[Rfam]
The family of this 180-nucleotide sequence from Streptomyces curacoi is "c-di-AMP riboswitch aptamer (ydaO/yuaA leader)". A search with the family's covariance model found it, with a score of 44 bits. The base pairs follow the family's consensus structure.
RNA sequence: GCCAUCCGACGACCGAAGCACCGCACGGCAGGAGCGGGGGAACCAGGUAAGUCGCCGAACCGGACGCCUUGAUGGCGCACCGGGCCGGCUAGGGGUGAAGUCGCACCGUCGUACGGCGGCGCGGCCGGGCAUCUCCCGCCCGAACCCGACAGCUCACCUCGCAGGCGCCGGAGAGGAACA
Numbered sequence: 001g002c003c004a005u006c007c008g009a010c011g012a013c014c015g016a017a018g019c020a021c022c023g024c025a026c027g028g029c030a031g032g033a034g035c036g037g038g039g040g041a042a043c044c045a046g047g048u049a050a051g052u053c054g055c056c057g058a059a060c061c062g063g064a065c066g067c068c069u070u071g072a073u074g075g076c077g078c079a080c081c082g083g084g085c086c087g088g089c090u091a092g093g094g095g096u097g098a099a100g101u102c103g104c105a106c107c108g109u110c111g112u113a114c115g116g117c118g119g120c121g122c123g124g125c126c127g128g129g130c131a132u133c134u135c136c137c138g139c140c141c142g143a144a145c146c147c148g149a150c151a152g153c154u155c156a157c158c159u160c161g162c163a164g165g166c167g168c169c170g171g172a173g174a175g176g177a178a179c180a
Base pairs, nucleotide, nucleotide: 001166002165003164005033006032007031034162035161036160037159038158039157044092093147094146095145101124102123103122104121127141128140129139130138